The family of this 128-nucleotide sequence from Canis lupus is "Small nucleolar RNA SNORA13". Taxonomically the source falls in Canis lupus (Eukaryota, Laurasiatheria, Caniformia, Canis). The family is grouped with related families in Rfam's "SNORA13 clan". It is annotated as an H/ACA-box small nucleolar RNA.
RNA sequence: GGCCUUUGUGUUGCCCGUUCACCUUCCGAAACUGGUGAACGCGGUGUCAGAAAAGGCGGAAAGCAAGGCCCUGGCGGCGCUUCCUGCCCGGACCGUGGGUCUGGGGCGCGCGCCGCCGGGUCACAGUU
Numbered sequence: 001g002g003c004c005u006u007u008g009u010g011u012u013g014c015c016c017g018u019u020c021a022c023c024u025u026c027c028g029a030a031a032c033u034g035g036u037g038a039a040c041g042c043g044g045u046g047u048c049a050g051a052a053a054a055g056g057c058g059g060a061a062a063g064c065a066a067g068g069c070c071c072u073g074g075c076g077g078c079g080c081u082u083c084c085u086g087c088c089c090g091g092a093c094c095g096u097g098g099g100u101c102u103g104g105g106g107c108g109c110g111c112g113c114c115g116c117c118g119g120g121u122c123a124c125a126g127u128u
Stems, first nucleotide, its partner, number of pairs: 002057006009049002012046004016041008070120009083110001085108003088104002090101002